Small nucleolar RNA Z107/R87: a 105-nucleotide RNA from Castanea mollissima.
Pairs were carried over by alignment from the consensus structure, which was predicted with RNAfold.
A search with the family's covariance model found it, with a score of 101 bits.
The source organism's lineage runs through Eukaryota, Streptophyta, Gunneridae, Fagaceae and Castanea.
RNA sequence: GAUCGCGGUGAUGACUCGGUAAAAUUCAAGCUCAACAGACCGGAAUGCAGGGCUUUCUCUUGCGAGAAAGUUUUGCGUGUCGAAUACCCGCUGAACUGAGCGAUC
Numbered sequence: 001g002a003u004c005g006c007g008g009u010g011a012u013g014a015c016u017c018g019g020u021a022a023a024a025u026u027c028a029a030g031c032u033c034a035a036c037a038g039a040c041c042g043g044a045a046u047g048c049a050g051g052g053c054u055u056u057c058u059c060u061u062g063c064g065a066g067a068a069a070g071u072u073u074u075g076c077g078u079g080u081c082g083a084a085u086a087c088c089c090g091c092u093g094a095a096c097u098g099a100g101c102g103a104u105c
Stems, first nucleotide, its partner, number of pairs: 001105006